[Rfam]
RNA sequence: ACGGGCACCGACGCCCGUGGUUCCAUACAGAAGCGACGUUUUAAAGCAGGACUAUUUGCAAAGCUUUAAAACUCGCAGGUUUCAUUUUGCCACGGACGGCAAAAUGAAACCGUAG
Dot-bracket structure: ((((((......))))))...............(((.((((((((((...............)))))))))))))..((((((((((((((......))))))))))))))....
Numbered sequence: 001a002c003g004g005g006c007a008c009c010g011a012c013g014c015c016c017g018u019g020g021u022u023c024c025a026u027a028c029a030g031a032a033g034c035g036a037c038g039u040u041u042u043a044a045a046g047c048a049g050g051a052c053u054a055u056u057u058g059c060a061a062a063g064c065u066u067u068a069a070a071a072c073u074c075g076c077a078g079g080u081u082u083c084a085u086u087u088u089g090c091c092a093c094g095g096a097c098g099g100c101a102a103a104a105u106g107a108a109a110c111c112g113u114a115g
Stems, first nucleotide, its partner, number of pairs: 001018006034075003038072010078111014